The record is a 131-nucleotide RNA from Phnomibacter ginsenosidimutans, which matches "SAM riboswitch aptamer (S box leader)" in Rfam. A reference for the family is Montange and Batey (2006), "Structure of the S-adenosylmethionine riboswitch regulatory mRNA element", Nature. The organism belongs to Phnomibacter, within Bacteria.
RNA sequence: AACUUAUCAAGAAAGGCAGAGGGAAAUGGCCCUGUGAAGCCUUGGCAACCCUAUCAGAGUACUCGUCUGAUAGAAGGUGCCAACUCCAUCCUGUACACUGGUUUCGGCCGGUGAACGGAGAGAGAUAAGUC
Numbered sequence: 001a002a003c004u005u006a007u008c009a010a011g012a013a014a015g016g017c018a019g020a021g022g023g024a025a026a027u028g029g030c031c032c033u034g035u036g037a038a039g040c041c042u043u044g045g046c047a048a049c050c051c052u053a054u055c056a057g058a059g060u061a062c063u064c065g066u067c068u069g070a071u072a073g074a075a076g077g078u079g080c081c082a083a084c085u086c087c088a089u090c091c092u093g094u095a096c097a098c099u100g101g102u103u104u105c106g107g108c109c110g111g112u113g114a115a116c117g118g119a120g121a122g123a124g125a126u127a128a129g130u131c
Stems, first nucleotide, its partner, number of pairs: 002130007013043005021032003026089004044081004049077002051073008085123001090120001